A member of the RNA family "Glycine riboswitch aptamer" from Yoonia rosea, 86 nucleotides long. Taxonomically the source falls in Yoonia (Bacteria, Pseudomonadati, Alphaproteobacteria, Paracoccaceae). Gene Ontology term of the family: glycine biosynthetic process. The base pairs follow the family's consensus structure.
[Rfam]
RNA sequence: CAAUCGACGUCGGGAGAACCAACCCAGUUGGUGCCGAAGGAGCAACCGCCCCGGAAACUCUCAGGCCACAGGACCGACGUAGGUAA
Number, nucleotide and partner (000 for none) at each position: 001c000002a000003a000004u000005c000006g000007a080008c079009g078010u077011c076012g075013g074014g000015a000016g000017a000018a000019c031020c030021a029022a028023c000024c000025c000026a000027g000028u022029u021030g020031g019032u000033g066034c065035c064036g062037a061038a000039g000040g060041a059042g058043c000044a000045a000046c054047c053048g000049c000050c000051c000052c000053g047054g046055a000056a000057a000058c042059u041060c040061u037062c036063a000064g035065g034066c033067c000068a000069c000070a000071g000072g000073a000074c013075c012076g011077a010078c009079g008080u007081a000082g000083g000084u000085a000086a000